Source information:
Rfam assigns this 440-nucleotide part of an RNA from Acetivibrio saccincola to the family "Bacterial large subunit ribosomal RNA". A reference for the family is Yusupov et al. (2001), "Crystal structure of the ribosome at 5.5 A resolution", Science. A search with the family's covariance model found it, with a score of 2930 bits.
RNA sequence: CUCCUCGAAAUAGCUUUAGGGCUAGCCUCAAGGUAGUCUAACGGAGGUAAAGCACUGAUUGGGCUAGGGGCCUUACCGGGUUACCGAACCCUAUCAAACUCUGAAUGCCGUAUAGAUGUUCCUUGGGAGUCAGACUAUGUGAGAUAAGUUUCAUAGUCGAGAGGGAAACAACCCAGACCACCAGCUAAGGUCCCAAAAUCGCAGUUAAGUGGAAAAGGAUGUGGGUUUGCUAAGACAACUAGGAUGUUGGCUUAGAAGCAGCCAUUCAUUUAAAGAGUGCGUAAUAGCUCACUAGUCGAGUGAACCUGCGCCGAAAAUGUCCGGGGCUUAAACUGUGUACCGAAGCUGUGGCUUUGUGUGAGAGCACAAGGGGUAGGGGAGCGUACUGUACUGGCAGAAGCAUGAUCGGAAGGACAUGUGGACGGUACAGUAGUGAGAAU
Numbered sequence: 001c002u003c004c005u006c007g008a009a010a011u012a013g014c015u016u017u018a019g020g021g022c023u024a025g026c027c028u029c030a031a032g033g034u035a036g037u038c039u040a041a042c043g044g045a046g047g048u049a050a051a052g053c054a055c056u057g058a059u060u061g062g063g064c065u066a067g068g069g070g071c072c073u074u075a076c077c078g079g080g081u082u083a084c085c086g087a088a089c090c091c092u093a094u095c096a097a098a099c100u101c102u103g104a105a106u107g108c109c110g111u112a113u114a115g116a117u118g119u120u121c122c123u124u125g126g127g128a129g130u131c132a133g134a135c136u137a138u139g140u141g142a143g144a145u146a147a148g149u150u151u152c153a154u155a156g157u158c159g160a161g162a163g164g165g166a167a168a169c170a171a172c173c174c175a176g177a178c179c180a181c182c183a184g185c186u187a188a189g190g191u192c193c194c195a196a197a198a199u200c201g202c203a204g205u206u207a208a209g210u211g212g213a214a215a216a217g218g219a220u221g222u223g224g225g226u227u228u229g230c231u232a233a234g235a236c237a238a239c240u241a242g243g244a245u246g247u248u249g250g251c252u253u254a255g256a257a258g259c260a261g262c263c264a265u266u267c268a269u270u271u272a273a274a275g276a277g278u279g280c281g282u283a284a285u286a287g288c289u290c291a292c293u294a295g296u297c298g299a300g301u302g303a304a305c306c307u308g309c310g311c312c313g314a315a316a317a318u319g320u321c322c323g324g325g326g327c328u329u330a331a332a333c334u335g336u337g338u339a340c341c342g343a344a345g346c347u348g349u350g351g352c353u354u355u356g357u358g359u360g361a362g363a364g365c366a367c368a369a370g371g372g373g374u375a376g377g378g379g380a381g382c383g384u385a386c387u388g389u390a391c392u393g394g395c396a397g398a399a400g401c402a403u404g405a406u407c408g409g410a411a412g413g414a415c416a417u418g419u420g421g422a423c424g425g426u427a428c429a430g431u432a433g434u435g436a437g438a439a440u
Stems, first nucleotide, its partner, number of pairs: 001381006011024005026129001027127007035120001036117005041111004050102001051100002056096003061091003067085002069082005133158007141150002163174003178351004183347003189341003198338001200337006217312002221309010238296005244269003249263003270274001275290001279288002352371008382435001384432010400419005406413002